The family of this 123-nucleotide sequence from Corymbia citriodora is "MIR398 microRNA precursor family".
It scores 61 bits against the family's covariance model.
The literature on the family includes a 2004 paper in Mol Cell by Jones-Rhoades and Bartel, "Computational identification of plant microRNAs and their targets, including a stress-induced miRNA".
RNA sequence: GAGGGCCCUACAGGAGUGACCUGAGACCACAUGCGGGCGCGUGCAUCGGCUGCCCCGGUAAUAUGCCGUCGCACCCCGGCAUUUGCGUCGCGUGUGUUCUCAGGUCGCCCCUGCCGGGCCGUC
Dot-bracket structure: ......((..((((.((((...((((.(((((((((...................................................))))))))).))))...)))).))))..))......